[Rfam]
RNA sequence: UCGAGAGCUAGCGCGACGGCGUGAAAAGCCAGACCCUCCUGGUCUGCUCUCGAAGUUUCAUUGAGG
Numbered sequence: 001u002c003g004a005g006a007g008c009u010a011g012c013g014c015g016a017c018g019g020c021g022u023g024a025a026a027a028g029c030c031a032g033a034c035c036c037u038c039c040u041g042g043u044c045u046g047c048u049c050u051c052g053a054a055g056u057u058u059c060a061u062u063g064a065g066g
Stems, first nucleotide, its partner, number of pairs: 001053008011022004028043005035066004
This 66-nucleotide sequence from Citrifermentans bemidjiense belongs to the Rfam family "int-alpA RNA". Rfam's curators put it in the seed alignment. Lineage of the source: Bacteria > Thermodesulfobacteriota > Geobacteraceae > Citrifermentans > Citrifermentans bemidjiense. Rfam describes the family as follows. Acidobacteria (1 example), Planctomycetes (1 example), Proteobacteria.